RNA sequence: UGCAGCUGUGUCAAAUUCAGUGCCUCUCCUAAUGAUGGCAAGCACUGGCCCAGAAGGCUGCCAUAGAAACUCUGUGACUCCUGAGCUCUGUUCCCCAUGCUAGGUUCAGGGAUAAAUGGAGUCACAGACAUCA
Numbered sequence: 001u002g003c004a005g006c007u008g009u010g011u012c013a014a015a016u017u018c019a020g021u022g023c024c025u026c027u028c029c030u031a032a033u034g035a036u037g038g039c040a041a042g043c044a045c046u047g048g049c050c051c052a053g054a055a056g057g058c059u060g061c062c063a064u065a066g067a068a069a070c071u072c073u074g075u076g077a078c079u080c081c082u083g084a085g086c087u088c089u090g091u092u093c094c095c096c097a098u099g100c101u102a103g104g105u106u107c108a109g110g111g112a113u114a115a116a117u118g119g120a121g122u123c124a125c126a127g128a129c130a131u132c133a
Base pairs, nucleotide, nucleotide: 002061003060004059005058018047019046020045021044022043023042025040027038028037074125075124076123077122078121079120086111087110088109089108090107